[Rfam]
RNA sequence: AAAAUGGUCUUCUGCUGUGUUUAACACGCGGGUUGAUUCGAUUUUCGGAUCUUUCUGAGCGGAAUCAACUUCAAGAGAUUUCAGAAGCUUCAUUUUUGCAGCUGGGGCUGUCAGUGAUCUCGCGUCCUGGCGCCCCC
Numbered sequence: 001a002a003a004a005u006g007g008u009c010u011u012c013u014g015c016u017g018u019g020u021u022u023a024a025c026a027c028g029c030g031g032g033u034u035g036a037u038u039c040g041a042u043u044u045u046c047g048g049a050u051c052u053u054u055c056u057g058a059g060c061g062g063a064a065u066c067a068a069c070u071u072c073a074a075g076a077g078a079u080u081u082c083a084g085a086a087g088c089u090u091c092a093u094u095u096u097u098g099c100a101g102c103u104g105g106g107g108c109u110g111u112c113a114g115u116g117a118u119c120u121c122g123c124g125u126c127c128u129g130g131c132g133c134c135c136c137c
Stems, first nucleotide, its partner, number of pairs: 009087004013026002016023002027059001029057004035051006061082006105135004110131005116126003
About this RNA: U11 spliceosomal RNA: a 137-nucleotide RNA from Geotrypetes seraphini. It scores 70 bits against the family's covariance model. The family is grouped with related families in Rfam's "U1 clan". By type it is a spliceosomal small nuclear RNA.